[Rfam]
RNA sequence: GUUGGCCGGAAGAAGACGGUUGGGAGAGACACAAAGGCCUGAAACAUGGCCUACACAACUCCCGGGAAGGUCUGAGAGUAGGCCUUUGAUGAGAUCUAGGAGAUCUUCCAUUAUCCUUAUAGAGGAGAGGCUGUAGAAGAAGACGUUUCCCCUGCGAGGGUUUGGAAACGGCCUCGGCCAGCAAUUCUCGUGUAAAUGCUGAGUGCGAUCGUCAUACCAACACAAUUCAGACUAGUCUUCGGCCAAC
Numbered sequence: 001g002u003u004g005g006c007c008g009g010a011a012g013a014a015g016a017c018g019g020u021u022g023g024g025a026g027a028g029a030c031a032c033a034a035a036g037g038c039c040u041g042a043a044a045c046a047u048g049g050c051c052u053a054c055a056c057a058a059c060u061c062c063c064g065g066g067a068a069g070g071u072c073u074g075a076g077a078g079u080a081g082g083c084c085u086u087u088g089a090u091g092a093g094a095u096c097u098a099g100g101a102g103a104u105c106u107u108c109c110a111u112u113a114u115c116c117u118u119a120u121a122g123a124g125g126a127g128a129g130g131c132u133g134u135a136g137a138a139g140a141a142g143a144c145g146u147u148u149c150c151c152c153u154g155c156g157a158g159g160g161u162u163u164g165g166a167a168a169c170g171g172c173c174u175c176g177g178c179c180a181g182c183a184a185u186u187c188u189c190g191u192g193u194a195a196a197u198g199c200u201g202a203g204u205g206c207g208a209u210c211g212u213c214a215u216a217c218c219a220a221c222a223c224a225a226u227u228c229a230g231a232c233u234a235g236u237c238u239u240c241g242g243c244c245a246a247c
Base pairs, nucleotide, nucleotide: 001247002246003245004244008240009239010238014215019210022063023062024061025060026059035052036051037050038049039048040046072230073229074228075227076226081179082178083177084176092106093105094104095103096102107126108125109124111122112121113120114119127175128174129173130172131171132170133169149160150159
Record summary: Shown here is a 247-nucleotide RNA from Caenorhabditis elegans, a member of the family "Nuclear RNase P". A reference for the family is Brown (1999), "The Ribonuclease P Database", Nucleic Acids Res. Rfam's curators write: Ribonuclease P (RNase P) is a ubiquitous endoribonuclease, found in archaea, bacteria and eukarya as well as chloroplasts and mitochondria. Lineage of the source: Eukaryota > Opisthokonta > Bilateria > Chromadorea > Caenorhabditis. Rfam classes the family as a ribozyme.